[Rfam]
RNA sequence: AAGGUUAAAAAGCACACUCGGUGAAAGCCGAGGCCGCAAAACUAUAGGGCCCAGCAUAAUUGAGAGACCAAAGGACAGCCAGUUGCCGAU
Numbered sequence: 001a002a003g004g005u006u007a008a009a010a011a012g013c014a015c016a017c018u019c020g021g022u023g024a025a026a027g028c029c030g031a032g033g034c035c036g037c038a039a040a041a042c043u044a045u046a047g048g049g050c051c052c053a054g055c056a057u058a059a060u061u062g063a064g065a066g067a068c069c070a071a072a073g074g075a076c077a078g079c080c081a082g083u084u085g086c087c088g089a090u
Stems, first nucleotide, its partner, number of pairs: 012037002017032006040084004047080002049076001051074001